Nucleotides: 075
Base pairs, nucleotide, nucleotide: 002047003046005044006043007042008041021034022033023032024031025030
Number, partner (000 for none) and nucleotide at each position: 001000c002047c003046c004000a005044c006043c007042g008041a009000g010000g011000g012000g013000c014000g015000c016000u017000g018000c019000g020000a021034c022033c023032g024031u025030c026000g027000u028000g029000c030025g031024a032023c033022g034021g035000c036000c037000a038000g039000g040000c041008u042007c043006g044005g045000c046003g047002g048000a049000c050000a051000u052000g053000u054000g055000c056000a057000g058000c059000a060000a061000c062000g063000g064000c065000g066000c067000u068000c069000a070000c071000c072000c073000a074000u075000g